[Rfam]
RNA sequence: AAAAGGCCGCGUAAGGGAUAGAAGCGACAUCCCCUGAAGUAAAUUUCAUUACUUCAGGGAUAAAGCGGAUAGCCCGUCCCUGA
Numbered sequence: 001a002a003a004a005g006g007c008c009g010c011g012u013a014a015g016g017g018a019u020a021g022a023a024g025c026g027a028c029a030u031c032c033c034c035u036g037a038a039g040u041a042a043a044u045u046u047c048a049u050u051a052c053u054u055c056a057g058g059g060a061u062a063a064a065g066c067g068g069a070u071a072g073c074c075c076g077u078c079c080c081u082g083a
Base pairs, nucleotide, nucleotide: 015075016074017073019071020070024066025065029061030060031059032058034057035056036055037054038053039052040051041050
RNA: Flavo-1 RNA